[Rfam]
Rfam assigns this 99-nucleotide RNA from Salarias fasciatus to the family "Small nucleolar RNA SNORD16".
Rfam classes the family as a C/D-box small nucleolar RNA.
Taxonomically the source falls in Salarias (Eukaryota, Eumetazoa, Vertebrata, Neopterygii).
A reference for the family is Fragapane et al. (1993), "A novel small nucleolar RNA (U16) is encoded inside a ribosomal protein intron and originates by processing of the pre-mRNA", EMBO J.

RNA sequence: UGCUGUGAUGGUGUAAUUUGCGUCUGACUCUGUGUCCAGUGACAGAUUGCCUGCUGUCGCAUACUGGCAUAGCUGGUUGAUGAACAUUGAGUCUGAGCA
Numbered sequence: 001u002g003c004u005g006u007g008a009u010g011g012u013g014u015a016a017u018u019u020g021c022g023u024c025u026g027a028c029u030c031u032g033u034g035u036c037c038a039g040u041g042a043c044a045g046a047u048u049g050c051c052u053g054c055u056g057u058c059g060c061a062u063a064c065u066g067g068c069a070u071a072g073c074u075g076g077u078u079g080a081u082g083a084a085c086a087u088u089g090a091g092u093c094u095g096a097g098c099a
Base pairs, nucleotide, nucleotide: 001099002098003097021082022081023080024079030072031071032070033069034068039064040063041058042057043056044055045054